[Rfam]
RNA sequence: GUUUGUAUGUGUGUGGAUGGUGUUCAGCACCAGGGACAGGUUGGUAUGUGUGUGGAUGGUGUUCAGCACCAGGGACAGGUUGGUAUGUGU
Numbered sequence: 001g002u003u004u005g006u007a008u009g010u011g012u013g014u015g016g017a018u019g020g021u022g023u024u025c026a027g028c029a030c031c032a033g034g035g036a037c038a039g040g041u042u043g044g045u046a047u048g049u050g051u052g053u054g055g056a057u058g059g060u061g062u063u064c065a066g067c068a069c070c071a072g073g074g075a076c077a078g079g080u081u082g083g084u085a086u087g088u089g090u
Base pairs, nucleotide, nucleotide: 005080006079008077009076010075018071019070020069021068022067023066024065026063027062028061029060030059031058032057034051036049037048038047040045